Rfam assigns this 89-nucleotide sequence from Thalassovita mediterranea to the family "Rhodo-rpoB RNA". Rfam classes the family as a cis-regulatory element. The base pairs follow the family's consensus structure, which is taken from published work.
[Rfam]
RNA sequence: GGAUCGAGAGACCCCGGUGGGACGGGGUCGAGAAUGGAUCUGGUCCACGCCGUCACUGACGCGAUUUGCCGGGGCCCGACGGUAGAUUG
Numbered sequence: 001g002g003a004u005c006g007a008g009a010g011a012c013c014c015c016g017g018u019g020g021g022a023c024g025g026g027g028u029c030g031a032g033a034a035u036g037g038a039u040c041u042g043g044u045c046c047a048c049g050c051c052g053u054c055a056c057u058g059a060c061g062c063g064a065u066u067u068g069c070c071g072g073g074g075c076c077c078g079a080c081g082g083u084a085g086a087u088u089g
Stems, first nucleotide, its partner, number of pairs: 001041005010029007062089010